[Rfam]
RNA sequence: GUUGGCUAUGGCGACAUGUGCCCUAUCACUUUGGGGGGAAAGAUGGUUGGGAUCCUCUGUGCCAUCGCUGGCGUGCUGACCAUUGCACUUCCUGUUCCUGUCAUCGUCUCCAAC
Numbered sequence: 001g002u003u004g005g006c007u008a009u010g011g012c013g014a015c016a017u018g019u020g021c022c023c024u025a026u027c028a029c030u031u032u033g034g035g036g037g038g039a040a041a042g043a044u045g046g047u048u049g050g051g052a053u054c055c056u057c058u059g060u061g062c063c064a065u066c067g068c069u070g071g072c073g074u075g076c077u078g079a080c081c082a083u084u085g086c087a088c089u090u091c092c093u094g095u096u097c098c099u100g101u102c103a104u105c106g107u108c109u110c111c112a113a114c
Stems, first nucleotide, its partner, number of pairs: 001114002004111002008107004013102004018097001020095002037077002040074001049063002

The family of this 114-nucleotide RNA sequence from Sinocyclocheilus grahami is "Potassium channel RNA editing signal". For this family Rfam cites "Control of human potassium channel inactivation by editing of a small mRNA hairpin" (Bhalla et al., Nat Struct Mol Biol, 2004). The family's consensus secondary structure is taken from published work. A search with the family's covariance model found it, with a score of 112 bits. The organism belongs to Sinocyclocheilus, within Eukaryota.